[Rfam]
A member of the RNA family "Plasmid-encoded Shigella sRNA A" from Candidatus Symbiopectobacterium sp. PLON1, 96 nucleotides long. Lineage of the source: Bacteria > Pseudomonadota > Enterobacterales > Enterobacteriaceae > Symbiopectobacterium. A search with the family's covariance model found it, with a score of 70 bits. Pairs were carried over by alignment from the consensus structure, which was predicted with RNAfold.
RNA sequence: UGGCUGAGAAAGGAAUUUUAAUGUUUAUCAGAGACCGUGUGGCACACUUUACGGUCUCGCGGUACAGGCACAAAACGGAGAGAAAUUAUGUUUGAA
Numbered sequence: 001u002g003g004c005u006g007a008g009a010a011a012g013g014a015a016u017u018u019u020a021a022u023g024u025u026u027a028u029c030a031g032a033g034a035c036c037g038u039g040u041g042g043c044a045c046a047c048u049u050u051a052c053g054g055u056c057u058c059g060c061g062g063u064a065c066a067g068g069c070a071c072a073a074a075a076c077g078g079a080g081a082g083a084a085a086u087u088a089u090g091u092u093u094g095a096a
Base pairs, nucleotide, nucleotide: 001070002069004067005066006065007063013058014057017054018053019051020050021049023047076094077093078092079091081089
Dot-bracket structure: ((.((((.....((..(((((.(.......................).))).))..))....).))).)).....((((.(.......).))))..